[Rfam]
RNA sequence: GGAGAGGUGGGUGAGUGGCUGAAACCACAUGUUUGCUAAACAUGCGUACGGGAAACCGUACCGGGGGUUCGAAUCCCCCUCUCUCCG
Numbered sequence: 001g002g003a004g005a006g007g008u009g010g011g012u013g014a015g016u017g018g019c020u021g022a023a024a025c026c027a028c029a030u031g032u033u034u035g036c037u038a039a040a041c042a043u044g045c046g047u048a049c050g051g052g053a054a055a056c057c058g059u060a061c062c063g064g065g066g067g068u069u070c071g072a073a074u075c076c077c078c079c080u081c082u083c084u085c086c087g
Base pairs, nucleotide, nucleotide: 001086002085003084004083005082006081007080010026011025012024028044029043030042031041032040063079064078065077066076067075